[Rfam]
RNA sequence: GGGUUUAUGAUGAGUUAUGAUUACAGAGCAUGAAGAAGUGAAGCUCAAUGUGAGUACUCUGAAGUCC
Number, nucleotide and partner (000 for none) at each position: 001g067002g066003g065004u064005u063006u000007a000008u000009g000010a000011u000012g059013a058014g057015u000016u000017a000018u000019g000020a000021u052022u000023a000024c000025a000026g046027a045028g044029c043030a000031u000032g000033a000034a000035g000036a000037a000038g000039u000040g000041a000042a000043g029044c028045u027046c026047a000048a000049u000050g000051u000052g021053a000054g000055u000056a000057c014058u013059c012060u000061g000062a000063a005064g004065u003066c002067c001